[Rfam]
RNA sequence: GAAGCAAAAUUGUGCCAUGAGUUCCCAUUAACGUCAACCUCUUUUUCUUCCAUAGGGAUGGUUUUUAGAUGUCUGAUGGGCGUUGCUUCAGUUGCGUAUGACUCAUGGUAGAUAAAUUUACUAGAAAGAUGUAUCUCCAGCUGUUGAUAUUAGAGGGGAAAGCCUUUCUCUUUCACCUCGCUUUUUUAAACACCUGAUACAGUUGGUCAUGAUUCGUUCUACAUUU
Numbered sequence: 001g002a003a004g005c006a007a008a009a010u011u012g013u014g015c016c017a018u019g020a021g022u023u024c025c026c027a028u029u030a031a032c033g034u035c036a037a038c039c040u041c042u043u044u045u046u047c048u049u050c051c052a053u054a055g056g057g058a059u060g061g062u063u064u065u066u067a068g069a070u071g072u073c074u075g076a077u078g079g080g081c082g083u084u085g086c087u088u089c090a091g092u093u094g095c096g097u098a099u100g101a102c103u104c105a106u107g108g109u110a111g112a113u114a115a116a117u118u119u120a121c122u123a124g125a126a127a128g129a130u131g132u133a134u135c136u137c138c139a140g141c142u143g144u145u146g147a148u149a150u151u152a153g154a155g156g157g158g159a160a161a162g163c164c165u166u167u168c169u170c171u172u173u174c175a176c177c178u179c180g181c182u183u184u185u186u187u188a189a190a191c192a193c194c195u196g197a198u199a200c201a202g203u204u205g206g207u208c209a210u211g212a213u214u215c216g217u218u219c220u221a222c223a224u225u226u
Stems, first nucleotide, its partner, number of pairs: 015108008024080007032071004036063004044055002081100003084096003123220004128215002137206008153179004158174005
A member of the RNA family "Small nucleolar RNA snR31" from Saccharomyces uvarum, 226 nucleotides long. By type it is an H/ACA-box small nucleolar RNA. Rfam links the family to the GO terms RNA processing and nucleolus.